[Rfam]
A member of the RNA family "Selenocysteine transfer RNA", 92 nucleotides long. A search with the family's covariance model found it, with a score of 77 bits.
RNA sequence: GGAGGCGUGUGGGUGCCUGGUGGCCCUCCCGGUCUUCAAAACCGAGGUGUCCGAGGAUCUCGGACAGGCGGGUUCGAUUCCCGUCCGCCUCC
Numbered sequence: 001g002g003a004g005g006c007g008u009g010u011g012g013g014u015g016c017c018u019g020g021u022g023g024c025c026c027u028c029c030c031g032g033u034c035u036u037c038a039a040a041a042c043c044g045a046g047g048u049g050u051c052c053g054a055g056g057a058u059c060u061c062g063g064a065c066a067g068g069c070g071g072g073u074u075c076g077a078u079u080c081c082c083g084u085c086c087g088c089c090u091c092c
Stems, first nucleotide, its partner, number of pairs: 001092007009084001012027002015024003028046001030044004048066005069083004
Dot-bracket structure: (((((((.(..((.(((....))).))(.((((.......)))).).(((((.........)))))..((((.......))))).)))))))
For this family Rfam cites "Eukaryotic selenocysteine tRNA has the 9/4 secondary structure" (Mizutani and Goto, FEBS Lett, 2000).